This 90-nucleotide RNA sequence from Rhinopithecus roxellana belongs to the Rfam family "mir-515 microRNA precursor family". A search with the family's covariance model found it, with a score of 72 bits. A reference for the family is Bentwich et al. (2005), "Identification of hundreds of conserved and nonconserved human microRNAs", Nat Genet. The base pairs follow the family's consensus structure, which was predicted with RNAalifold.

[Rfam]
RNA sequence: UCUCAGGCUGUGACUAUCUGGAGGUAAGAAGUGCUUACUGUUGUCUUAAAGAAAAGAAAGUGCUUUCUUUCCGAGGGUUAUGGUUUGAGA
Number, nucleotide and partner (000 for none) at each position: 001u090002c089003u088004c087005a086006g000007g084008c083009u082010g081011u080012g079013a078014c077015u000016a000017u074018c073019u000020g071021g070022a069023g068024g067025u000026a000027a000028g066029a065030a064031g063032u062033g061034c060035u059036u058037a000038c056039u000040g000041u055042u054043g000044u000045c000046u000047u000048a000049a000050a000051g000052a000053a000054a042055a041056g038057a000058a036059a035060g034061u033062g032063c031064u030065u029066u028067c024068u023069u022070u021071c020072c000073g018074a017075g000076g000077g014078u013079u012080a011081u010082g009083g008084u007085u000086u005087g004088a003089g002090a001